[Rfam]
Nucleotides: 094
Stems, first nucleotide, its partner, number of pairs: 004026006029052007059086010
Number, partner (000 for none) and nucleotide at each position: 001000u002000c003000u004026c005025c006024c007023g008022c009021u010000u011000c012000u013000c014000c015000u016000c017000c018000c019000u020000g021009a022008g023007c024006g025005g026004g027000u028000u029052g030051u031050c032049u033048u034047g035046a036000c037000c038000c039000g040000a041000a042000a043000a044000a045000g046035u047034c048033g049032a050031g051030g052029c053000a054000u055000u056000u057000u058000c059086g060085c061084c062083c063082u064081u065080g066079g067078u068077u069000u070000u071000c072000c073000u074000u075000a076000u077068a078067g079066c080065c081064a082063a083062g084061g085060g086059c087000a088000u089000u090000u091000u092000u093000u094000u